[Rfam]
RNA sequence: CCCAACAAUCGUGAUGUGGUUGUUUUAAUCAUAAUGUUUUGAUGAAAGGGCAGUUUUUUAUUGCCCUUUUCUUUUU
Dot-bracket structure: .........................((.(((........))))).(((((((((.....)))))))))........